[Rfam]
Nucleotides: 062
Base pairs, nucleotide, nucleotide: 034059035058036057037056038055039054040053041052042051044049
Number, partner (000 for none) and nucleotide at each position: 001000u002000a003000g004000u005000g006000u007000u008000a009000c010000a011000g012000c013000u014000c015000u016000u017000u018000u019000a020000g021000a022000a023000u024000u025000u026000g027000c028000c029000u030000a031000g032000c033000a034059g035058g036057u037056u038055u039054u040053c041052c042051g043000a044049u045000u046000c047000u048000c049044a050000c051042u052041g053040g054039a055038a056037g057036a058035c059034c060000c061000u062000c

The record is a 62-nucleotide RNA sequence from Microcebus murinus, which matches "U7 small nuclear RNA" in Rfam.
Animal histone pre-mRNAs are spliced by a different mechanism than nuclear pre-mRNAs and self-splicing introns. This processing involves the U7 snRNP, which contains only one RNA species: U7. The 5' end of U7 RNA is thought to base-pair to a conserved spacer element downstream of the cleavage site in histone pre-mRNA. This family contains a number of annotated U7 pseudogenes.
The source organism's lineage runs through Eukaryota, Tetrapoda, Boreoeutheria, Lemuriformes and Microcebus.
On this family, see Spycher et al., Nucleic Acids Res 1994: "3' end processing of mouse histone pre-mRNA: evidence for additional base-pairing between U7 snRNA and pre-mRNA".